Rfam assigns this 54-nucleotide sequence from Haloplanus vescus to the family "eL15-Euryarchaeota ribosomal protein leader".
A reference for the family is Eckert and Weinberg (2020), "Discovery of 20 novel ribosomal leader candidates in bacteria and archaea", BMC Microbiol.

RNA sequence: CCCGACUCGUCGGGACGAUAUGUGACCCGCCUCGCGGCGGCGUUGAAUCGCAAG
Numbered sequence: 001c002c003c004g005a006c007u008c009g010u011c012g013g014g015a016c017g018a019u020a021u022g023u024g025a026c027c028c029g030c031c032u033c034g035c036g037g038c039g040g041c042g043u044u045g046a047a048u049c050g051c052a053a054g
Stems, first nucleotide, its partner, number of pairs: 001014005016050003024044003027040005